Rfam assigns this 35-nucleotide sequence from Olivibacter sp. SDN3 to the family "DUF805b RNA". By type it is a cis-regulatory element. The family is grouped with related families in Rfam's "DUF805 clan".

RNA sequence: UAAGCGGAGGCCGAAAAGCUUUAAAAGAGUAGGCA
Numbered sequence: 001u002a003a004g005c006g007g008a009g010g011c012c013g014a015a016a017a018g019c020u021u022u023a024a025a026a027g028a029g030u031a032g033g034c035a
Stems, first nucleotide, its partner, number of pairs: 002021004010034003